[Rfam]
RNA sequence: AAAACAAAGCAGAAGCACCCGCUUCUCGCCUUAGUUGACGAAAAGUCUCUGGGCUAGAUAUAAACGAAGAUGUCUUACGCACGGCGUAAGUACGUAUUUAUUUAUGGGCGGGUUCAGAAAUGAACCCGUCUAUUUUUCUGCUG
Numbered sequence: 001a002a003a004a005c006a007a008a009g010c011a012g013a014a015g016c017a018c019c020c021g022c023u024u025c026u027c028g029c030c031u032u033a034g035u036u037g038a039c040g041a042a043a044a045g046u047c048u049c050u051g052g053g054c055u056a057g058a059u060a061u062a063a064a065c066g067a068a069g070a071u072g073u074c075u076u077a078c079g080c081a082c083g084g085c086g087u088a089a090g091u092a093c094g095u096a097u098u099u100a101u102u103u104a105u106g107g108g109c110g111g112g113u114u115c116a117g118a119a120a121u122g123a124a125c126c127c128g129u130c131u132a133u134u135u136u137u138c139u140g141c142u143g
Stems, first nucleotide, its partner, number of pairs: 011026006028054003037047003107130010